[Rfam]
RNA sequence: AUAAUGAUACUUCUGUCUAGUCAUAGACUCAAUCAAUGAGGGCAGUUUUGUGAGAACCACAAAGAGGUGAAAUUCCUAUGG
Numbered sequence: 001a002u003a004a005u006g007a008u009a010c011u012u013c014u015g016u017c018u019a020g021u022c023a024u025a026g027a028c029u030c031a032a033u034c035a036a037u038g039a040g041g042g043c044a045g046u047u048u049u050g051u052g053a054g055a056a057c058c059a060c061a062a063a064g065a066g067g068u069g070a071a072a073u074u075c076c077u078a079u080g081g
Base pairs, nucleotide, nucleotide: 012078013045014044015043016042017041018040046064047063048062050060051059052058065077066076067075